[Rfam]
RNA sequence: CCCCCCAUAGCCCAACCGGCAGAGGCAGCCGACUUAAAAUCGGUGCAGUCUGGGUUCGAAUCCCAGUGGGGGGA
Numbered sequence: 001c002c003c004c005c006c007a008u009a010g011c012c013c014a015a016c017c018g019g020c021a022g023a024g025g026c027a028g029c030c031g032a033c034u035u036a037a038a039a040u041c042g043g044u045g046c047a048g049u050c051u052g053g054g055u056u057c058g059a060a061u062c063c064c065a066g067u068g069g070g071g072g073g074a
Base pairs, nucleotide, nucleotide: 001073002072003071004070005069006068007067010026011025012024028044029043030042031041032040050066051065052064053063054062

The record is a 74-nucleotide RNA sequence from Leucobacter massiliensis, which matches "tRNA" in Rfam.
Gene Ontology term of the family: triplet codon-amino acid adaptor activity.
It is annotated as a transfer RNA.